[Rfam]
RNA sequence: UUUCCCAUUUGACUGCCAUAUUAUCUCCUAAUAAUAGAUUUUAGUGGCUAUGCUUAUGGGAUAAAUUAAAUUGCCAUGAUCUGAAGGAGGAGGAUUCAUUUGUGUCUUCCUCCUAUAUGAAAUGGCUGAACAGAAAACU
Numbered sequence: 001u002u003u004c005c006c007a008u009u010u011g012a013c014u015g016c017c018a019u020a021u022u023a024u025c026u027c028c029u030a031a032u033a034a035u036a037g038a039u040u041u042u043a044g045u046g047g048c049u050a051u052g053c054u055u056a057u058g059g060g061a062u063a064a065a066u067u068a069a070a071u072u073g074c075c076a077u078g079a080u081c082u083g084a085a086g087g088a089g090g091a092g093g094a095u096u097c098a099u100u101u102g103u104g105u106c107u108u109c110c111u112c113c114u115a116u117a118u119g120a121a122a123u124g125g126c127u128g129a130a131c132a133g134a135a136a137a138c139u
Stems, first nucleotide, its partner, number of pairs: 004060004016047004073126004091114004
RNA: Small nucleolar RNA SNORA29